[Rfam]
RNA: Bacterial large signal recognition particle RNA
Organism: Clostridium carboxidivorans
RNA sequence: UCGUGCUAGAUGGGGAGCUAGCGGUGCCCUGUAACCUGAAAUCCGCUACAGCAGGAUCGAAUUCCCACUAUAGGCUUUAAUCUGCUUAGUCUGCCUGAUCAAAGUGGUAUUGAGAAUUGGGUCCCAUGCAGCAGAAGCUCGCAAACUCCGUCAGAUCCGGAAGGAAGCAGCGGUAAGUGAUAACUUCUGAGUGCCGUGGAACAACCUGGUUCGAGCUAACUAGAUUUGUAACGUUAGUAGAUUAUUUGUCAACAGUGGGUGCACGA
Numbered sequence: 001u002c003g004u005g006c007u008a009g010a011u012g013g014g015g016a017g018c019u020a021g022c023g024g025u026g027c028c029c030u031g032u033a034a035c036c037u038g039a040a041a042u043c044c045g046c047u048a049c050a051g052c053a054g055g056a057u058c059g060a061a062u063u064c065c066c067a068c069u070a071u072a073g074g075c076u077u078u079a080a081u082c083u084g085c086u087u088a089g090u091c092u093g094c095c096u097g098a099u100c101a102a103a104g105u106g107g108u109a110u111u112g113a114g115a116a117u118u119g120g121g122u123c124c125c126a127u128g129c130a131g132c133a134g135a136a137g138c139u140c141g142c143a144a145a146c147u148c149c150g151u152c153a154g155a156u157c158c159g160g161a162a163g164g165a166a167g168c169a170g171c172g173g174u175a176a177g178u179g180a181u182a183a184c185u186u187c188u189g190a191g192u193g194c195c196g197u198g199g200a201a202c203a204a205c206c207u208g209g210u211u212c213g214a215g216c217u218a219a220c221u222a223g224a225u226u227u228g229u230a231a232c233g234u235u236a237g238u239a240g241a242u243u244a245u246u247u248g249u250c251a252a253c254a255g256u257g258g259g260u261g262c263a264c265g266a
Stems, first nucleotide, its partner, number of pairs: 001266006009058003012030004017025003035055004064259006073250003079243008088234001092230002097226004104220002106217003114212009124199005129191001132189005139180004148173004156165003